About this RNA: mir-548 microRNA precursor family: an 84-nucleotide sequence from Hipposideros armiger. The literature on the family includes a 2010 paper in BMC Biol by Witten et al., "Ultra-high throughput sequencing-based small RNA discovery and discrete statistical biomarker analysis in a collection of cervical tumours and matched controls". The family's consensus secondary structure was predicted with WAR. It scores 96 bits against the family's covariance model. Its family is annotated with miRNA-mediated post-transcriptional gene silencing and RISC complex in the Gene Ontology.
[Rfam]
RNA sequence: UAUUAGGUUGGUGCAAAAGUAAUAGCACUUUUGGCCAUUACUUGUAAUGGCCAAAAGUGCUAUUACUUUUGCACCAACUUAAUA
Number, nucleotide and partner (000 for none) at each position: 001u084002a083003u082004u081005a080006g079007g078008u077009u076010g075011g074012u073013g072014c071015a070016a069017a068018a067019g066020u065021a064022a063023u062024a061025g060026c059027a058028c057029u056030u055031u054032u053033g052034g051035c050036c049037a048038u047039u046040a045041c000042u000043u000044g000045u040046a039047a038048u037049g036050g035051c034052c033053a032054a031055a030056a029057g028058u027059g026060c025061u024062a023063u022064u021065a020066c019067u018068u017069u016070u015071g014072c013073a012074c011075c010076a009077a008078c007079u006080u005081a004082a003083u002084a001